Rfam assigns this 315-nucleotide RNA from Paraglomus occultum to the family "Nuclear RNase P". Gene Ontology terms of the family: ribonuclease P complex, ribonuclease P activity and tRNA processing. It is annotated as a ribozyme.
[Rfam]
Nucleotides: 315
Stems, first nucleotide, its partner, number of pairs: 001315004007309003012271007020076005035060006086299005095243004105119005120135006137239007157223002272287006
Number, partner (000 for none) and nucleotide at each position: 001315c002314g003313a004312a005000c006000g007309a008308a009307a010000a011000g012271c013270u014269c015268g016267c017266g018265u019000a020076a021075a022074g023073g024072g025000c026000a027000a028000a029000c030000a031000c032000a033000c034000g035060g036059a037058c038057u039056g040055g041000a042000c043000u044000u045000u046000u047000a048000a049000a050000g051000a052000g053000u054000u055040c056039c057038g058037g059036u060035c061000a062000u063000u064000a065000a066000g067000u068000a069000c070000a071000a072024c073023c074022c075021u076020u077000g078000g079000u080000g081000a082000a083000g084000g085000u086299c087298u088297g089296a090295g091000a092000a093000a094000a095243a096242c097241c098240a099000u100000u101000a102000u103000u104000u105119g106118u107117c108116u109115c110000u111000a112000g113000c114000u115109g116108a117107g118106a119105c120135c121134c122133u123132u124131a125130c126000g127000a128000g129000a130125g131124u132123g133122a134121g135120g136000a137239g138238u139237g140236g141235g142234u143233u144000a145000c146000c147000a148000g149000a150000a151000a152000c153000g154000a155000u156000a157223c158222c159000c160000a161000g162000c163000a164000u165000u166000u167000u168000c169000u170000u171000a172000u173000a174000u175000g176000a177000a178000g179000u180000c181000g182000u183000u184000c185000c186000u187000u188000u189000u190000c191000a192000a193000g194000g195000g196000a197000c198000g199000a200000c201000a202000g203000a204000u205000u206000u207000u208000a209000c210000g211000g212000g213000a214000g215000u216000g217000u218000c219000u220000g221000u222158g223157g224000u225000u226000g227000g228000a229000a230000c231000g232000c233143g234142g235141c236140c237139c238138a239137c240098u241097g242096g243095u244000g245000g246000a247000a248000g249000a250000u251000c252000u253000a254000u255000g256000a257000a258000g259000u260000g261000c262000a263000a264000u265018a266017c267016g268015u269014g270013a271012g272287g273286c274285a275284u276283c277282a278000g279000a280000c281000a282277u283276g284275a285274u286273g287272u288000a289000a290000c291000u292000c293000a294000a295090u296089u297088c298087a299086g300000a301000c302000u303000a304000c305000u306000c307009u308008u309007u310000c311000g312004u313003u314002c315001g